[Rfam]
RNA sequence: AAAUAAAUCUGAUUCAUACCGUAGACAGCAGGGGUGCGCCAUGCACUUAAUCUUCCUGCCGAGGUUGUUUAAGGACGAAACAGGAGUUUCUGUCAAUUUACACCUUCAUGUCGAUCGGCAUGAAGGUGUUUUUAAAUAGUG
Numbered sequence: 001a002a003a004u005a006a007a008u009c010u011g012a013u014u015c016a017u018a019c020c021g022u023a024g025a026c027a028g029c030a031g032g033g034g035u036g037c038g039c040c041a042u043g044c045a046c047u048u049a050a051u052c053u054u055c056c057u058g059c060c061g062a063g064g065u066u067g068u069u070u071a072a073g074g075a076c077g078a079a080a081c082a083g084g085a086g087u088u089u090c091u092g093u094c095a096a097u098u099u100a101c102a103c104c105u106u107c108a109u110g111u112c113g114a115u116c117g118g119c120a121u122g123a124a125g126g127u128g129u130u131u132u133u134a135a136a137u138a139g140u141g
Stems, first nucleotide, its partner, number of pairs: 028059006034046003103126010
The family of this 141-nucleotide RNA from Pueribacillus theae is "Ribosomal protein L10 leader".
Lineage of the source: Bacteria > Bacillati > Caryophanales > Bacillaceae > Pueribacillus.
A search with the family's covariance model found it, with a score of 76 bits.
By type it is a cis-regulatory leader.